Overview
This 75-nucleotide RNA sequence from Rubrivivax sp. A210 belongs to the Rfam family "SAH (S-adenosyl-L-homocysteine) riboswitch aptamer". The organism belongs to Rubrivivax, within Bacteria. Gene Ontology terms of the family: regulation of gene expression and S-adenosylhomocysteine metabolic process.
[Rfam]
RNA sequence: CGCCCCGAGGAGCGUUGCAACCUUCGUCCAGAAGGCCAGGCUCGGGGUUCUACAUUGCAACCGCGCUCACCUGCA
Numbered sequence: 001c002g003c004c005c006c007g008a009g010g011a012g013c014g015u016u017g018c019a020a021c022c023u024u025c026g027u028c029c030a031g032a033a034g035g036c037c038a039g040g041c042u043c044g045g046g047g048u049u050c051u052a053c054a055u056u057g058c059a060a061c062c063g064c065g066c067u068c069a070c071c072u073g074c075a
Base pairs, nucleotide, nucleotide: 002048003047004046005045006044007043008042021035022034023033024032025031